[Rfam]
This 87-nucleotide sequence from Varanus komodoensis belongs to the Rfam family "Small nucleolar RNA SNORD11B".

RNA sequence: UGAUGGCAGUGAUGAUUCCUGUGAAGAUGCUUUCCUGAUGUCUGAAGCAUGAGGGCUGCACAGUCACUACCUCUUCUGAUGCCAUCU
Numbered sequence: 001u002g003a004u005g006g007c008a009g010u011g012a013u014g015a016u017u018c019c020u021g022u023g024a025a026g027a028u029g030c031u032u033u034c035c036u037g038a039u040g041u042c043u044g045a046a047g048c049a050u051g052a053g054g055g056c057u058g059c060a061c062a063g064u065c066a067c068u069a070c071c072u073c074u075u076c077u078g079a080u081g082c083c084a085u086c087u
Stems, first nucleotide, its partner, number of pairs: 002086006
A reference for the family is Yang et al. (2006), "snoSeeker: an advanced computational package for screening of guide and orphan snoRNA genes in the human genome", Nucleic Acids Res. Rfam 15.1 lists 733 matches to the family in 632 species. By type it is a C/D-box small nucleolar RNA. A search with the family's covariance model found it, with a score of 72 bits. The family is grouped with related families in Rfam's "SNORD11 clan".